The family of this 79-nucleotide sequence from Mesorhizobium japonicum is "Makes More Granules Regulator RNA (mmgR)".
[Rfam]
RNA sequence: UGUCCAUGCCCUCCUUGGGCGUUUCCUCCCUAGACUUCGACCGUAUCGUGCAAACGAUGCGGUCUUUUUUUACACCUGC
Numbered sequence: 001u002g003u004c005c006a007u008g009c010c011c012u013c014c015u016u017g018g019g020c021g022u023u024u025c026c027u028c029c030c031u032a033g034a035c036u037u038c039g040a041c042c043g044u045a046u047c048g049u050g051c052a053a054a055c056g057a058u059g060c061g062g063u064c065u066u067u068u069u070u071u072a073c074a075c076c077u078g079c
Stems, first nucleotide, its partner, number of pairs: 008020004039064009

On this family, see Corbino et al., Genome Biol 2005: "Evidence for a second class of S-adenosylmethionine riboswitches and other regulatory RNA motifs in alpha-proteobacteria". The family's RNA type in Rfam is small RNA. Rfam's curators write: SuhB later renamed mmgR (makes more granules regulator) was a putative non-coding RNA found multiple times in the Agrobacterium tumefaciens genome and related alpha-proteobacteria. Other non-coding RNAs uncovered in the same analysis include: speF, ybhL, metA, and serC.Several studies inSinorhizobium meliloti showed that suhB element is indeed a non-coding RNA:firstly it was detected on Northern blot and called Sm8RNA, secondly in an RNAseq study referred to as SmelC689.The mutant phenotype's (strain lacking the small RNA) cytoplasm contains higher content of polyhydroxybutyrate (PBH)storage granules than wild type strain.